The family of this 282-nucleotide RNA from Saimiri boliviensis is "HIF-1 alpha IRES". On this family, see Lang et al., Mol Biol Cell 2002: "Hypoxia-inducible factor-1alpha mRNA contains an internal ribosome entry site that allows efficient translation during normoxia and hypoxia". It is annotated as an internal ribosome entry site. Gene Ontology term of the family: ribosome binding.
RNA sequence: CUCGUCUGAGGGGACGCGAGGAUCGCCCUCGCCGUCGCUUCGGCCUCCGCGUCGGGCUGGGCCCUGACAAGCCGCCUGAGGGAAGGCUCGGAGCCGGGCCCGGACCCCGGCGAUUGCCGCCCCCUUCUCUUCCUUCUGGUCUCCCGAGCGGUUUCCCGCCUCGCACCUCACCUCUGGACUUGCCUUUCCUCCUCUCUCCGCGUGUGGAGGGAGCCAGCGCUUAGGCCGGAGCGAGCCAGGGGGCUGCCCGCCGCGAAGGCACGCGGGGACCGAGCCACCAUG
Numbered sequence: 001c002u003c004g005u006c007u008g009a010g011g012g013g014a015c016g017c018g019a020g021g022a023u024c025g026c027c028c029u030c031g032c033c034g035u036c037g038c039u040u041c042g043g044c045c046u047c048c049g050c051g052u053c054g055g056g057c058u059g060g061g062c063c064c065u066g067a068c069a070a071g072c073c074g075c076c077u078g079a080g081g082g083a084a085g086g087c088u089c090g091g092a093g094c095c096g097g098g099c100c101c102g103g104a105c106c107c108c109g110g111c112g113a114u115u116g117c118c119g120c121c122c123c124c125u126u127c128u129c130u131u132c133c134u135u136c137u138g139g140u141c142u143c144c145c146g147a148g149c150g151g152u153u154u155c156c157c158g159c160c161u162c163g164c165a166c167c168u169c170a171c172c173u174c175u176g177g178a179c180u181u182g183c184c185u186u187u188c189c190u191c192c193u194c195u196c197u198c199c200g201c202g203u204g205u206g207g208a209g210g211g212a213g214c215c216a217g218c219g220c221u222u223a224g225g226c227c228g229g230a231g232c233g234a235g236c237c238a239g240g241g242g243g244c245u246g247c248c249c250g251c252c253g254c255g256a257a258g259g260c261a262c263g264c265g266g267g268g269a270c271c272g273a274g275c276c277a278c279c280a281u282g
Base pairs, nucleotide, nucleotide: 001013002012003011016032017031018030019029020028021027034062035061036060083154084153085152087151127150129148130147131146180217181216182215184213185212186211187210193208194207195206227250228249229248231247232246233245